A member of the RNA family "Histone 3' UTR stem-loop" from Acanthaster planci, 46 nucleotides long. The source organism's lineage runs through Eukaryota, Eumetazoa, Echinodermata, Eleutherozoa and Acanthaster. By type it is a cis-regulatory element. Rfam describes the family as follows. The mRNAs of metazoan histone genes lack a poly-A tail. 3' end processing occurs at a site between a highly conserved stem-loop (modelled by this family) and a purine rich region around 20 nts downstream (the histone downstream element, or HDE). The stem-loop is bound by a 31 kDa stem-loop binding protein (SLBP - also termed the histone hairpin binding protein, or HBP). Its family is annotated with mRNA 3'-end processing by stem-loop binding and cleavage in the Gene Ontology. Pairs were carried over by alignment from the consensus structure, which is taken from published work.
[Rfam]
RNA sequence: CAAUCGGUCCUUUUCAGGACCACACAUUGUCAAAAAGAGAUUGAUU
Numbered sequence: 001c002a003a004u005c006g007g008u009c010c011u012u013u014u015c016a017g018g019a020c021c022a023c024a025c026a027u028u029g030u031c032a033a034a035a036a037g038a039g040a041u042u043g044a045u046u
Stems, first nucleotide, its partner, number of pairs: 006021006